[Rfam]
RNA sequence: AUCAUUUAUUCGUUGAAUGCUUCCAAAGGAAGCAGCGGGGGAACCAUGUGAACGACUGGAAAAUCUUUCAUUCAAGGGGUGAAGCCGGAUGCUUAACGGCUCUGGCAGGGCGGCUCUCUCGUCCGAAUCCGACAGCUAACCUCGUAAACGAAAAAAAGGGAGAGA
Numbered sequence: 001a002u003c004a005u006u007u008a009u010u011c012g013u014u015g016a017a018u019g020c021u022u023c024c025a026a027a028g029g030a031a032g033c034a035g036c037g038g039g040g041g042a043a044c045c046a047u048g049u050g051a052a053c054g055a056c057u058g059g060a061a062a063a064u065c066u067u068u069c070a071u072u073c074a075a076g077g078g079g080u081g082a083a084g085c086c087g088g089a090u091g092c093u094u095a096a097c098g099g100c101u102c103u104g105g106c107a108g109g110g111c112g113g114c115u116c117u118c119u120c121g122u123c124c125g126a127a128u129c130c131g132a133c134a135g136c137u138a139a140c141c142u143c144g145u146a147a148a149c150g151a152a153a154a155a156a157a158g159g160g161a162g163a164g165a
Stems, first nucleotide, its partner, number of pairs: 011150004018034006035145006045076001077130003085105004108124004